[Rfam]
RNA sequence: CGACAAUCGUCGGGGUGCCCGGAAUCGACCCGGGCUGAGAGCUGCCGCGGAGCGGGAGCAACCCGUUGAACCUGAACCGGAUCAUGCCGGCGGAGGGAACGACCAUGGAUCAGGC
Numbered sequence: 001c002g003a004c005a006a007u008c009g010u011c012g013g014g015g016u017g018c019c020c021g022g023a024a025u026c027g028a029c030c031c032g033g034g035c036u037g038a039g040a041g042c043u044g045c046c047g048c049g050g051a052g053c054g055g056g057a058g059c060a061a062c063c064c065g066u067u068g069a070a071c072c073u074g075a076a077c078c079g080g081a082u083c084a085u086g087c088c089g090g091c092g093g094a095g096g097g098a099a100c101g102a103c104c105a106u107g108g109a110u111c112a113g114g115c
Base pairs, nucleotide, nucleotide: 007102008101009100010099011065012064013063014062017035018034019033020032021031042058043057045055046054047053048052071096072095073094077090078089079088080087